[Rfam]
RNA sequence: UGUCAAAUGAUGAGAGAUAUAACUGCAACAACAUGAGCGAAUUAACAUUCGUGAUUAUUAGUAUUUAAGUCUCUGAUGACA
Numbered sequence: 001u002g003u004c005a006a007a008u009g010a011u012g013a014g015a016g017a018u019a020u021a022a023c024u025g026c027a028a029c030a031a032c033a034u035g036a037g038c039g040a041a042u043u044a045a046c047a048u049u050c051g052u053g054a055u056u057a058u059u060a061g062u063a064u065u066u067a068a069g070u071c072u073c074u075g076a077u078g079a080c081a
Stems, first nucleotide, its partner, number of pairs: 001081005038051005
This 81-nucleotide RNA from Artemisia annua belongs to the Rfam family "Small nucleolar RNA Z199". Lineage of the source: Eukaryota > Streptophyta > Pentapetalae > Asteraceae > Artemisia. snoZ199 is a C/D box small nucleolar RNA, which acts as a methylation guide RNA for sites on 18S and 25S rRNA. Rice snoZ199 is reported to be homologous to Arabidopsis snoR13. It scores 69 bits against the family's covariance model. Rfam classes the family as a C/D-box small nucleolar RNA. Its family is annotated with RNA processing and nucleolus in the Gene Ontology.